A member of the RNA family "Small nucleolar RNA Z40" from Megalops atlanticus, 73 nucleotides long. Lineage of the source: Eukaryota > Chordata > Actinopteri > Elopocephala > Megalops. For this family Rfam cites "The high diversity of snoRNAs in plants: identification and comparative study of 120 snoRNA genes from Oryza sativa" (Chen et al., Nucleic Acids Res, 2003). Rfam links the family to the GO terms RNA processing and nucleolus.
[Rfam]
RNA sequence: UGACUGUAAUGAUGAUUGGCAAAAUGUUCAACUGCUCUGAAGAUUAUGAAUGAGCUAUGCCUUUCUGAACUCU
Numbered sequence: 001u002g003a004c005u006g007u008a009a010u011g012a013u014g015a016u017u018g019g020c021a022a023a024a025u026g027u028u029c030a031a032c033u034g035c036u037c038u039g040a041a042g043a044u045u046a047u048g049a050a051u052g053a054g055c056u057a058u059g060c061c062u063u064u065c066u067g068a069a070c071u072c073u
Base pairs, nucleotide, nucleotide: 002072003071006070007069

Description:
Pairs were carried over by alignment from the consensus structure, which was predicted with PFOLD. It scores 58 bits against the family's covariance model.